Annotation
Rfam assigns this 128-nucleotide RNA sequence from Nippostrongylus brasiliensis to the family "Caenorhabditis snoRNA ceN45".
[Rfam]
RNA sequence: GUGGGGCACAGAGUUGCAGUUGUUCGAAUCGUAGAUCAAUUGUGCUAAGUUGUCCCGAAACUGAAUGGCGACCUUUGACAAGUGAACGAUGCUCAAUAAUCGGCUGCGUGUUAAGGUCUCGUACAUUU
Numbered sequence: 001g002u003g004g005g006g007c008a009c010a011g012a013g014u015u016g017c018a019g020u021u022g023u024u025c026g027a028a029u030c031g032u033a034g035a036u037c038a039a040u041u042g043u044g045c046u047a048a049g050u051u052g053u054c055c056c057g058a059a060a061c062u063g064a065a066u067g068g069c070g071a072c073c074u075u076u077g078a079c080a081a082g083u084g085a086a087c088g089a090u091g092c093u094c095a096a097u098a099a100u101c102g103g104c105u106g107c108g109u110g111u112u113a114a115g116g117u118c119u120c121g122u123a124c125a126u127u128u
Stems, first nucleotide, its partner, number of pairs: 003056006009049001012046003016043003021038002024035002069121003073116006083106002087102004

Rfam 15.1 lists 13 matches to the family in 11 species. A reference for the family is Jia et al. (2007), "Systematic identification of non-coding RNA 2,2,7-trimethylguanosine cap structures in Caenorhabditis elegans", BMC Mol Biol.